[Rfam]
RNA sequence: CUGACCUUAAUGAUGUGGAUGGAGUAAAGCUUUUGGGACUUCCAUUUGCUGAUGUUGCGUGAC
Numbered sequence: 001c002u003g004a005c006c007u008u009a010a011u012g013a014u015g016u017g018g019a020u021g022g023a024g025u026a027a028a029g030c031u032u033u034u035g036g037g038a039c040u041u042c043c044a045u046u047u048g049c050u051g052a053u054g055u056u057g058c059g060u061g062a063c
Base pairs, nucleotide, nucleotide: 002062004060005059015049016048017047018046019045020044021043022042023041024040030037031036
Dot-bracket structure: .(.((.........((((((((((.....((....))..)))))))))).........)).).

The record is a 63-nucleotide sequence from Orycteropus afer, which matches "Selenocysteine insertion sequence 1" in Rfam. Rfam links the family to the GO term selenocysteine incorporation. Lineage of the source: Eukaryota > Opisthokonta > Afrotheria > Orycteropus > Orycteropus afer. From the family's description: The incorporation of selenocysteine into a protein sequence is directed by an in-frame UGA codon (usually a stop codon) within the coding region of the mRNA. Selenoprotein mRNAs contain a conserved secondary structure in the 3' UTR that is required for the distinction of UGA stop from UGA selenocysteine. The selenocysteine insertion sequence (SECIS) is around 60 nt in length and adopts a hairpin structure which is sufficiently well-defined and conserved to act as a computational screen for selenoprotein genes.